[Rfam]
RNA sequence: UCCGUCGUUAGGUGGAAUCUGAAGGAAGUCGGCGGCAAACCUCCGGCCCGAGGACCACGAACCCCAGGUGAGGCCAGCAGCAGUUGGAUGAGCUUGCUUAACAAAGCGAAGUCCCUGCUACCGAAGGCUGCUGAGAUUAAAUGGGGCGGGUAGAUGGAGGGAAAGAUAAUGUU
Dot-bracket structure: ((((((....))))))...........(.((....(...(((((((((((...........(((((......(....((((((..((((..((((........))))...)))).............))))))....)...))))))))))...))))))....)....)).)
RNA: Group II catalytic intron D1-D4-3
Organism: Desulfotomaculum nigrificans